[Rfam]
RNA sequence: CCCUCGUCUGCCCAGUGUUCAGACUACCUGUUCAUUUUUCAGCCUGUGUACAGUAGUCCGCACAUUGGUUAGGCUGGGCA
Dot-bracket structure: ...........(((((((.(.(((((.((((.((............)).))))))))).).)))))))............
This 80-nucleotide sequence from Polypterus senegalus belongs to the Rfam family "mir-199 microRNA precursor family". This family consists of the microRNA (miRNA) precursor mir-199 which appears to be specific to humans. A reference for the family is Mourelatos et al. (2002), "miRNPs: a novel class of ribonucleoproteins containing numerous microRNAs", Genes Dev.